RNA sequence: AGGAUGUUGUCAUCAUUAAUACAAUUUAUUAAUAGGAUAGCUAUACAAAUAGUAGCAACAUCUAGAGCAUCUUAGCUUAAGUAUAUGUGUCUGUGAUUAUAUGAUUGAAAACAACUCUUUUUAGCUCUACUUUGACACUCAGUUGCAUAAUA
Numbered sequence: 001a002g003g004a005u006g007u008u009g010u011c012a013u014c015a016u017u018a019a020u021a022c023a024a025u026u027u028a029u030u031a032a033u034a035g036g037a038u039a040g041c042u043a044u045a046c047a048a049a050u051a052g053u054a055g056c057a058a059c060a061u062c063u064a065g066a067g068c069a070u071c072u073u074a075g076c077u078u079a080a081g082u083a084u085a086u087g088u089g090u091c092u093g094u095g096a097u098u099a100u101a102u103g104a105u106u107g108a109a110a111a112c113a114a115c116u117c118u119u120u121u122u123a124g125c126u127c128u129a130c131u132u133u134g135a136c137a138c139u140c141a142g143u144u145g146c147a148u149a150a151u152a
Base pairs, nucleotide, nucleotide: 006041007040008039009038010037011036015033016032017031018030019029020028021027055146056145057144058143059142062081063080065078066077067076068075087138088137089136090135091134103127104126105124106123107122108121109120110119111118